[Rfam]
RNA sequence: CGACUGUAACGGUCAUAAGGUUAAGACGAGCCCACGCUCCCAUUUCCCCGUCUCCAAAAUCUCAAUCUAACGAUUGAAGCUACCAACAGUGCCCAGUCCGAACACUGCGGUGACAAUCCACUCGUUCGGGAAACCCACGAUGCUGGUGUUGUCUUGAGCAAUGAAGAUGAUUUCUUGAGGGAGGUUUCACUCUGCAGAGAGCUCUUCACCUUGGUGUGGCGGUAUUGGAUUACAUUUGUUGUGUGGUUUGGAGAGGGGAUUUGGGUUGGGUUCCUACUUUUUGUCUUUU
Numbered sequence: 001c002g003a004c005u006g007u008a009a010c011g012g013u014c015a016u017a018a019g020g021u022u023a024a025g026a027c028g029a030g031c032c033c034a035c036g037c038u039c040c041c042a043u044u045u046c047c048c049c050g051u052c053u054c055c056a057a058a059a060u061c062u063c064a065a066u067c068u069a070a071c072g073a074u075u076g077a078a079g080c081u082a083c084c085a086a087c088a089g090u091g092c093c094c095a096g097u098c099c100g101a102a103c104a105c106u107g108c109g110g111u112g113a114c115a116a117u118c119c120a121c122u123c124g125u126u127c128g129g130g131a132a133a134c135c136c137a138c139g140a141u142g143c144u145g146g147u148g149u150u151g152u153c154u155u156g157a158g159c160a161a162u163g164a165a166g167a168u169g170a171u172u173u174c175u176u177g178a179g180g181g182a183g184g185u186u187u188c189a190c191u192c193u194g195c196a197g198a199g200a201g202c203u204c205u206u207c208a209c210c211u212u213g214g215u216g217u218g219g220c221g222g223u224a225u226u227g228g229a230u231u232a233c234a235u236u237u238g239u240u241g242u243g244u245g246g247u248u249u250g251g252a253g254a255g256g257g258g259a260u261u262u263g264g265g266u267u268g269g270g271u272u273c274c275u276a277c278u279u280u281u282u283g284u285c286u287u288u289u
Base pairs, nucleotide, nucleotide: 002014003013004012018287019286020285022283023282024281025280028273029272030271031270032269033268034267036266037265038264039263042260043259047258048257049256051254052253053252054251055250056249057248058247062077063076064075065074066073067072081245082244083243084241085240086239087238088237089235090234091233093228094227095226096225097224098222099221100220102217103216104215105214106213107212109210110209112153114151115150116149117148118146119145120144122140123139124138125137128135129134154158162208163207164206165205166204167203172201173200174199175198176197181192182191183190